[Rfam]
RNA sequence: AUAAAGAAUAAGCCUAAUCCCAGGCAUCAGGGGAACGGGGGAACCACUUUGGGUGAAUUGGUCUCGCAACGGAGGGGCCAUAGGGGAAACCUUCUACCGAAUCCUUAAGCUAACCUCGUAGGCGUUGGAAGGGGUACAC
Numbered sequence: 001a002u003a004a005a006g007a008a009u010a011a012g013c014c015u016a017a018u019c020c021c022a023g024g025c026a027u028c029a030g031g032g033g034a035a036c037g038g039g040g041g042a043a044c045c046a047c048u049u050u051g052g053g054u055g056a057a058u059u060g061g062u063c064u065c066g067c068a069a070c071g072g073a074g075g076g077g078c079c080a081u082a083g084g085g086g087a088a089a090c091c092u093u094c095u096a097c098c099g100a101a102u103c104c105u106u107a108a109g110c111u112a113a114c115c116u117c118g119u120a121g122g123c124g125u126u127g128g129a130a131g132g133g134g135u136a137c138a139c
Stems, first nucleotide, its partner, number of pairs: 012123003018034003035119006051104003059080007083098002086095001

Overview:
Rfam assigns this 139-nucleotide sequence from Paenibacillus yonginensis to the family "c-di-AMP riboswitch aptamer (ydaO/yuaA leader)". Its family is annotated with cyclic-di-AMP binding and regulation of gene expression in the Gene Ontology. About the family: This family represents a conserved RNA structure found upstream of the ydaO and yuaA genes in Bacillus subtilis and related genes in other bacteria. The ydaO/yuaA element is thought to act as a genetic 'off' switch for the ydaO and yuaA genes in its native state. It is believed that the element may be triggered during osmotic shock leading to activation of ydaO, a predicted amino acid transporter gene, and members of the yuaA-yubG operon which code for KtrA and KtrB K+ transporters.